[Rfam]
RNA sequence: GCACAACGAGCCAGUAGUCCGGGAAUCGGAUUGACUCAUGGGCAUGUCGGGGUGGCAGUCAGCUUAGGUAGCGCCGGGCGUGUUCGUUGCUCUGCGCGCAGCUGAAUCGCUCACGCGCGCUGGGUAAUUCCCCACAGCCCCCGGCCCCCGAGCCCAUCAGUCUGUCUACGCCAGGAACGAAGGUUCGGGGGCCGCUGCAU
Numbered sequence: 001g002c003a004c005a006a007c008g009a010g011c012c013a014g015u016a017g018u019c020c021g022g023g024a025a026u027c028g029g030a031u032u033g034a035c036u037c038a039u040g041g042g043c044a045u046g047u048c049g050g051g052g053u054g055g056c057a058g059u060c061a062g063c064u065u066a067g068g069u070a071g072c073g074c075c076g077g078g079c080g081u082g083u084u085c086g087u088u089g090c091u092c093u094g095c096g097c098g099c100a101g102c103u104g105a106a107u108c109g110c111u112c113a114c115g116c117g118c119g120c121u122g123g124g125u126a127a128u129u130c131c132c133c134a135c136a137g138c139c140c141c142c143g144g145c146c147c148c149c150g151a152g153c154c155c156a157u158c159a160g161u162c163u164g165u166c167u168a169c170g171c172c173a174g175g176a177a178c179g180a181a182g183g184u185u186c187g188g189g190g191g192c193c194g195c196u197g198c199a200u
Stems, first nucleotide, its partner, number of pairs: 014059002017056002061125001063123002066121001068120002071118004076112005142194013157174001160171002